[Rfam]
RNA sequence: CCAGAGGGUCGGGCGGUCGCCGCCGCGCUUGCGCGGGGGAGGAAAGUCCGGGCUCCACGGGAACACGGUGCCGGGUAACGCCCGGCGGGUUCGGUUCGCCGGACUUAGGGAAAGUGCCACAGAGAGCAGACCGCUCACCGUCCCGGCUUUUACGUCGGGGCAGGAGCAAGGGUGAAAGGGUGCGGCAAGAGCGCACCGCGCGACCGGCAACGGAAGCGGCAUGGCAAACCCCACCGGGAGCAAGAUCGAAUAGGGACCGCAUAUGGGGAGUUCCGCCUCGCGGUCCGGGUUGAUUGCUUGAGCCGUCACGUAAGUGCCGGCCUAGAGGAAUGGCCGCCCAUCGCCAGCACCUCCCACACGGGAAAGGGCGAGCGUGGACAGAACCCGGCUUACAGACCCUCUGGCAUU
Numbered sequence: 001c002c003a004g005a006g007g008g009u010c011g012g013g014c015g016g017u018c019g020c021c022g023c024c025g026c027g028c029u030u031g032c033g034c035g036g037g038g039g040a041g042g043a044a045a046g047u048c049c050g051g052g053c054u055c056c057a058c059g060g061g062a063a064c065a066c067g068g069u070g071c072c073g074g075g076u077a078a079c080g081c082c083c084g085g086c087g088g089g090u091u092c093g094g095u096u097c098g099c100c101g102g103a104c105u106u107a108g109g110g111a112a113a114g115u116g117c118c119a120c121a122g123a124g125a126g127c128a129g130a131c132c133g134c135u136c137a138c139c140g141u142c143c144c145g146g147c148u149u150u151u152a153c154g155u156c157g158g159g160g161c162a163g164g165a166g167c168a169a170g171g172g173u174g175a176a177a178g179g180g181u182g183c184g185g186c187a188a189g190a191g192c193g194c195a196c197c198g199c200g201c202g203a204c205c206g207g208c209a210a211c212g213g214a215a216g217c218g219g220c221a222u223g224g225c226a227a228a229c230c231c232c233a234c235c236g237g238g239a240g241c242a243a244g245a246u247c248g249a250a251u252a253g254g255g256a257c258c259g260c261a262u263a264u265g266g267g268g269a270g271u272u273c274c275g276c277c278u279c280g281c282g283g284u285c286c287g288g289g290u291u292g293a294u295u296g297c298u299u300g301a302g303c304c305g306u307c308a309c310g311u312a313a314g315u316g317c318c319g320g321c322c323u324a325g326a327g328g329a330a331u332g333g334c335c336g337c338c339c340a341u342c343g344c345c346a347g348c349a350c351c352u353c354c355c356a357c358a359c360g361g362g363a364a365a366g367g368g369c370g371a372g373c374g375u376g377g378a379c380a381g382a383a384c385c386c387g388g389c390u391u392a393c394a395g396a397c398c399c400u401c402u403g404g405c406a407u408u
Stems, first nucleotide, its partner, number of pairs: 001404010011393001012338007020039002023036005044391003048388005053240004061274001063272001066236005071085005086108001087106008109231002114229002116225003131171002133167003138164002142160002179197006198220001199218003204213003244295004254286006265279004302321004307316003

Rfam assigns this 408-nucleotide sequence from Sphingomonas turrisvirgatae to the family "Bacterial RNase P class A". Taxonomically the source falls in Sphingomonas (Bacteria, Pseudomonadati, Pseudomonadota, Alphaproteobacteria). It is annotated as a ribozyme. A search with the family's covariance model found it, with a score of 289 bits. Ribonuclease P (RNase P) is a ubiquitous endoribonuclease, found in archaea, bacteria and eukarya as well as chloroplasts and mitochondria.